[Rfam]
RNA sequence: UAUACCGCUCGUUAGGUGAGGCUCCUGUGCGGAGAAAAGCUGCUGCCCAAAAAUGUCUAAAGACGCCAAUGGGUAAACAGAGGUCAUCGAGAUAAGGUGGCUUUUAAUGUAGCUGGGCUUUUGUCCCUAUGCCGCACAGUGCUAAAGCUCUACGAUGGAGGCAAGUA
Numbered sequence: 001u002a003u004a005c006c007g008c009u010c011g012u013u014a015g016g017u018g019a020g021g022c023u024c025c026u027g028u029g030c031g032g033a034g035a036a037a038a039g040c041u042g043c044u045g046c047c048c049a050a051a052a053a054u055g056u057c058u059a060a061a062g063a064c065g066c067c068a069a070u071g072g073g074u075a076a077a078c079a080g081a082g083g084u085c086a087u088c089g090a091g092a093u094a095a096g097g098u099g100g101c102u103u104u105u106a107a108u109g110u111a112g113c114u115g116g117g118c119u120u121u122u123g124u125c126c127c128u129a130u131g132c133c134g135c136a137c138a139g140u141g142c143u144a145a146a147g148c149u150c151u152a153c154g155a156u157g158g159a160g161g162c163a164a165g166u167a
Stems, first nucleotide, its partner, number of pairs: 008160003011153002013095001015149003020143003025139008039113005045074005054065004080104004086098003115127003